[Rfam]
RNA sequence: GUUGGAAUGAUGAACUUUUCUAUGUCGGAUACCCCUUCACUCUUGAGAAUGAGUGAAAAAUCUCUUCUGACAAC
Numbered sequence: 001g002u003u004g005g006a007a008u009g010a011u012g013a014a015c016u017u018u019u020c021u022a023u024g025u026c027g028g029a030u031a032c033c034c035c036u037u038c039a040c041u042c043u044u045g046a047g048a049a050u051g052a053g054u055g056a057a058a059a060a061u062c063u064c065u066u067c068u069g070a071c072a073a074c
Base pairs, nucleotide, nucleotide: 001074002073003072005071
This 74-nucleotide sequence from Chiloscyllium punctatum belongs to the Rfam family "Small nucleolar RNA SNORD101". Its Rfam clan is "SNORD101 clan". Gene Ontology terms of the family: nucleolus and RNA processing. It scores 56 bits against the family's covariance model. The family's RNA type in Rfam is C/D-box small nucleolar RNA. For this family Rfam cites "Identification of 13 novel human modification guide RNAs" (Vitali et al., Nucleic Acids Res, 2003).